[Rfam]
RNA: Actinobacteria sRNA Ms_IGR-7
Organism: Mycobacterium dioxanotrophicus
RNA sequence: UGAAAGUGCCUUUCUUGUGCGGGUCAGAUUGUUGCCUAGAGAACAUCAAUCUUUCCAGCUCAGAGGGCACUUUCUUCAUUACGACACCCCGUCAACCAGCCGAUCAUCGGUGGAAUCAG
Numbered sequence: 001u002g003a004a005a006g007u008g009c010c011u012u013u014c015u016u017g018u019g020c021g022g023g024u025c026a027g028a029u030u031g032u033u034g035c036c037u038a039g040a041g042a043a044c045a046u047c048a049a050u051c052u053u054u055c056c057a058g059c060u061c062a063g064a065g066g067g068c069a070c071u072u073u074c075u076u077c078a079u080u081a082c083g084a085c086a087c088c089c090c091g092u093c094a095a096c097c098a099g100c101c102g103a104u105c106a107u108c109g110g111u112g113g114a115a116u117c118a119g
Base pairs, nucleotide, nucleotide: 002074003073004072005071006070007069008068009067010066011065012064013063016062017061020058022056023055026052027051028050029049031047033045034044102117103116104113105112106111